[Rfam]
Notes: c-di-AMP riboswitch aptamer (ydaO/yuaA leader): a 217-nucleotide RNA sequence from Streptosporangium roseum. About the family: This family represents a conserved RNA structure found upstream of the ydaO and yuaA genes in Bacillus subtilis and related genes in other bacteria.
Nucleotides: 217
Stems, first nucleotide, its partner, number of pairs: 003037005038197006048132002133182003141157004160176004
Number, partner (000 for none) and nucleotide at each position: 001000a002000a003037u004036c005035c006034g007033c008000a009000c010000c011000g012000g013000c014000c015000g016000u017000c018000c019000c020000c021000c022000u023000u024000u025000c026000g027000g028000c029000c030000u031000g032000c033007g034006c035005g036004g037003a038197g039196c040195c041194g042193g043192g044000g045000a046000a047000c048132c049131a050000c051000c052000a053000u054000c055000u056000g057000g058000g059000a060000u061000c062000c063000a064000c065000g066000g067000c068000c069000g070000u071000c072000c073000a074000g075000g076000a077000c078000a079000u080000c081000u082000c083000g084000c085000u086000u087000c088000g089000c090000a091000c092000g093000g094000c095000g096000g097000a098000g099000c100000c101000a102000u103000g104000c105000c106000c107000u108000g109000g110000g111000c112000c113000g114000c115000c116000u117000u118000c119000a120000a121000c122000g123000g124000g125000a126000u127000c128000c129000c130000u131049u132048g133182g134181g135180g136000c137000g138000a139000a140000u141157c142156a143155g144154c145000g146000c147000u148000u149000c150000c151000c152000g153000c154144g155143c156142u157141g158000u159000a160176g161175g162174g163173c164000g165000g166000c167000c168000u169000c170000c171000a172000c173163g174162c175161c176160c177000g178000a179000g180135c181134c182133c183000g184000a185000c186000a187000g188000c189000u190000a191000a192043c193042c194041c195040g196039g197038c198000c199000g200000g201000c202000c203000u204000u205000a206000u207000g208000g209000a210000a211000g212000g213000a214000a215000c216000c217000a